[Rfam]
RNA: Vertebrate telomerase RNA
Organism: Hypocryptadius cinnamomeus
RNA sequence: CGUGCCGGGGUGGGCAGGCCCUAUGGCCAACUAACCCUAAUGGCGGCCGCGCCCCUCACGCUCGCCCGCUGUUUUACUCGCUGACUUUCAGCGGGCAAAGGAAGCGGCUCAGGGGAAGGGGGUGGGGGAAAAGAGUUCCGGCCUCAAAAAAAGCCAGCGAGGGGGAUCCACACCCCGGCCCACCCUGGGGGGGUCCCUGUCCCUUCUCCGCAACAGGGGAUGCUCCCGCCCUCGCCCCUCGUGGAGGCCGCGGUCGGCGGGCUCAGCGCCCCUGCCGCCGCGAAGAGUUCGUCUCUGUCAGCCUCGGCGGCGGCCGGGAGCAGAGGGCCGGCGCGCCCACCCUGGGCAGCCGGGGGGCCCCAGCAGAACAAAACGGGCGCGGCGCCGCUGGGCGCUGAGCAGCCGCCGCCCCCUGAGACGUGGGGUGCGCGGUGGGCGCCGCCCCGACACCC
Numbered sequence: 001c002g003u004g005c006c007g008g009g010g011u012g013g014g015c016a017g018g019c020c021c022u023a024u025g026g027c028c029a030a031c032u033a034a035c036c037c038u039a040a041u042g043g044c045g046g047c048c049g050c051g052c053c054c055c056u057c058a059c060g061c062u063c064g065c066c067c068g069c070u071g072u073u074u075u076a077c078u079c080g081c082u083g084a085c086u087u088u089c090a091g092c093g094g095g096c097a098a099a100g101g102a103a104g105c106g107g108c109u110c111a112g113g114g115g116a117a118g119g120g121g122g123u124g125g126g127g128g129a130a131a132a133g134a135g136u137u138c139c140g141g142c143c144u145c146a147a148a149a150a151a152a153g154c155c156a157g158c159g160a161g162g163g164g165g166a167u168c169c170a171c172a173c174c175c176c177g178g179c180c181c182a183c184c185c186u187g188g189g190g191g192g193g194u195c196c197c198u199g200u201c202c203c204u205u206c207u208c209c210g211c212a213a214c215a216g217g218g219g220a221u222g223c224u225c226c227c228g229c230c231c232u233c234g235c236c237c238c239u240c241g242u243g244g245a246g247g248c249c250g251c252g253g254u255c256g257g258c259g260g261g262c263u264c265a266g267c268g269c270c271c272c273u274g275c276c277g278c279c280g281c282g283a284a285g286a287g288u289u290c291g292u293c294u295c296u297g298u299c300a301g302c303c304u305c306g307g308c309g310g311c312g313g314c315c316g317g318g319a320g321c322a323g324a325g326g327g328c329c330g331g332c333g334c335g336c337c338c339a340c341c342c343u344g345g346g347c348a349g350c351c352g353g354g355g356g357g358c359c360c361c362a363g364c365a366g367a368a369c370a371a372a373a374c375g376g377g378c379g380c381g382g383c384g385c386c387g388c389u390g391g392g393c394g395c396u397g398a399g400c401a402g403c404c405g406c407c408g409c410c411c412c413c414u415g416a417g418a419c420g421u422g423g424g425g426u427g428c429g430c431g432g433u434g435g436g437c438g439c440c441g442c443c444c445c446g447a448c449a450c451c452c
Base pairs, nucleotide, nucleotide: 006178008176009175010174013171019165020164021163022162051108052107053106055104064096065095066094067093068092069091070090071089080158081157082156083155085153086151087150088149185363186362187361188360189359190358222321223320224319225318226317227316228315232310233309234308235307236306249282250281251280252279253278255277256276257275258274260270261269262268284296285295286294287293375444376443377442378441381440382439383438384437385436386435403432404431405430406429410425411424412423413422